[Rfam]
RNA sequence: GGGAUAUGUUGAGCAGUAAAUACCUUCAAUUAAAAAUAUGCAAGAAGGGUGCCCGCCCUGCCUGGUUACGACAAUUGGGCACUCCCAUUUUCACAUACUUUAUCCC
Dot-bracket structure: ((((............((....(.(.(............).).)..(((((((.........((((.......)))))))))))...........)).....))))

Small nucleolar RNA Z279/snoR105/snoR108: a 106-nucleotide RNA sequence from Striga asiatica.
Rfam describes the family as follows. This family includes the plant snoRNAs known as Z279, snoR105 and snoR108.
Rfam classes the family as a C/D-box small nucleolar RNA.
It scores 55 bits against the family's covariance model.